[Rfam]
RNA: Makes More Granules Regulator RNA (mmgR)
Organism: Pseudolabrys taiwanensis
RNA sequence: UACCGCUGCCCUCCUUGGGCGUUUCCUCCCUAGACUUGGGCCGCUUGCAACCGCGAGCGGCCCUUUUUUUUGUGCCGA
Numbered sequence: 001u002a003c004c005g006c007u008g009c010c011c012u013c014c015u016u017g018g019g020c021g022u023u024u025c026c027u028c029c030c031u032a033g034a035c036u037u038g039g040g041c042c043g044c045u046u047g048c049a050a051c052c053g054c055g056a057g058c059g060g061c062c063c064u065u066u067u068u069u070u071u072g073u074g075c076c077g078a
Stems, first nucleotide, its partner, number of pairs: 008020004038063009